This 76-nucleotide RNA from Poecilia reticulata belongs to the Rfam family "U1A polyadenylation inhibition element (PIE)". The literature on the family includes a 2000 paper in Nat Struct Biol by Varani et al., "The NMR structure of the 38 kDa U1A protein - PIE RNA complex reveals the basis of cooperativity in regulation of polyadenylation by human U1A protein". Its family is annotated with regulation of mRNA polyadenylation in the Gene Ontology. This family represents the U1A polyadenylation inhibition element (PIE). Rfam 15.1 lists 510 matches to the family in 331 species. The match comes from Rfam's covariance-model search (68 bits). The source organism's lineage runs through Eukaryota, Actinopterygii, Osteoglossocephalai, Neoteleostei and Poecilia.
[Rfam]
RNA sequence: UGUUAAAGCAUUGCACCCAGAGUCUGGGCGACCAGACAUUGUACCUGGAGCUUUUCCCUUUUCUUUAUUUUUUCUU
Number, nucleotide and partner (000 for none) at each position: 001u000002g000003u000004u000005a054006a053007a052008g051009c050010a000011u000012u000013g000014c000015a000016c000017c048018c047019a046020g045021a000022g037023u036024c035025u034026g033027g000028g000029c000030g000031a000032c000033c026034a025035g024036a023037c022038a000039u000040u000041g000042u000043a000044c000045c020046u019047g018048g017049a000050g009051c008052u007053u006054u005055u000056c000057c000058c000059u000060u000061u000062u000063c000064u000065u000066u000067a000068u000069u000070u000071u000072u000073u000074c000075u000076u000